folP RNA: a 102-nucleotide RNA sequence.
[Rfam]
RNA sequence: CACAUGGAGGAAAUGCCAUGUCUAUGAAUAAUUUCAUAGGGUCGAAUUGAUGAUUAUUUCCCUGAUUAUCAAUUUGGUUGCAGGUAGUUCAUACUCCUCAAU
Numbered sequence: 001c002a003c004a005u006g007g008a009g010g011a012a013a014u015g016c017c018a019u020g021u022c023u024a025u026g027a028a029u030a031a032u033u034u035c036a037u038a039g040g041g042u043c044g045a046a047u048u049g050a051u052g053a054u055u056a057u058u059u060c061c062c063u064g065a066u067u068a069u070c071a072a073u074u075u076g077g078u079u080g081c082a083g084g085u086a087g088u089u090c091a092u093a094c095u096c097c098u099c100a101a102u
Base pairs, nucleotide, nucleotide: 003020004019005018006017007016022039023038024037025036026035027034028033040079041078042077043076045074046073047072048071049070050069051068052067053066054065055064056063

Source information:
The base pairs follow the family's consensus structure, which is taken from published work. It is annotated as a cis-regulatory element.